[Rfam]
RNA sequence: GGCCUCCUGGUGCUUACCACAGGCUGUGUUCUUACACUGACUAUAUAGAAAAAGAAGUGGGCCUGCCUUCUCUGUUCUUGUACUGACUGUAUAGAAAGAGAAGAGCUCCUACCCUAUAUACACCUCUGCUCAGGCUCUAGUCCUGGUCUGAAUUGUGAAUGGGGGGACAUGG
Numbered sequence: 001g002g003c004c005u006c007c008u009g010g011u012g013c014u015u016a017c018c019a020c021a022g023g024c025u026g027u028g029u030u031c032u033u034a035c036a037c038u039g040a041c042u043a044u045a046u047a048g049a050a051a052a053a054g055a056a057g058u059g060g061g062c063c064u065g066c067c068u069u070c071u072c073u074g075u076u077c078u079u080g081u082a083c084u085g086a087c088u089g090u091a092u093a094g095a096a097a098g099a100g101a102a103g104a105g106c107u108c109c110u111a112c113c114c115u116a117u118a119u120a121c122a123c124c125u126c127u128g129c130u131c132a133g134g135c136u137c138u139a140g141u142c143c144u145g146g147u148c149u150g151a152a153u154u155g156u157g158a159a160u161g162g163g164g165g166g167a168c169a170u171g172g
Stems, first nucleotide, its partner, number of pairs: 004103002007100002020089003026083004112164006126150001128148001130146005

About this RNA:
The record is a 172-nucleotide sequence from Pan paniscus, which matches "Small nucleolar RNA SNORA51" in Rfam. Pairs were carried over by alignment from the consensus structure, which was predicted with PFOLD. The match comes from Rfam's covariance-model search (86 bits). NCBI's taxonomy places the organism under Eukaryota, Chordata, Tetrapoda, Haplorrhini, Pan. Rfam's curators write: ACA51 is a member of the H/ACA class of snoRNA that guide the sites of modification of uridines to pseudouridines.